[Rfam]
RNA sequence: ACUAUCCUUCUUUUGGGGUUUGAGCUACUGAUCAAUGAAUUUUACUGAGAUCAGUACUGCUGAUGCCACAAACAACACAUAAGCAUCACUAGUGUGAGAGCACUGGAAUAGUGCAAUUUUUGGAUUC
Numbered sequence: 001a002c003u004a005u006c007c008u009u010c011u012u013u014u015g016g017g018g019u020u021u022g023a024g025c026u027a028c029u030g031a032u033c034a035a036u037g038a039a040u041u042u043u044a045c046u047g048a049g050a051u052c053a054g055u056a057c058u059g060c061u062g063a064u065g066c067c068a069c070a071a072a073c074a075a076c077a078c079a080u081a082a083g084c085a086u087c088a089c090u091a092g093u094g095u096g097a098g099a100g101c102a103c104u105g106g107a108a109u110a111g112u113g114c115a116a117u118u119u120u121u122g123g124a125u126u127c
Base pairs, nucleotide, nucleotide: 006018007017008016009015022060024058027055028054029053030052031051032050033049039046083114084113085112086111088109089106090105091104092103093102094101
This 127-nucleotide sequence from Eleutherodactylus coqui belongs to the Rfam family "U4atac minor spliceosomal RNA".
Rfam classes the family as a spliceosomal small nuclear RNA.
A reference for the family is Lorkovic et al. (2005), "Evolutionary conservation of minor U12-type spliceosome between plants and humans", RNA.
Taxonomically the source falls in Eleutherodactylus (Eukaryota, Opisthokonta, Chordata, Dipnotetrapodomorpha).
Rfam links the family to the GO terms spliceosomal tri-snRNP complex assembly, pre-mRNA 5'-splice site binding and mRNA 5'-splice site recognition.
The match comes from Rfam's covariance-model search (65 bits).
Its Rfam clan is "U4 clan".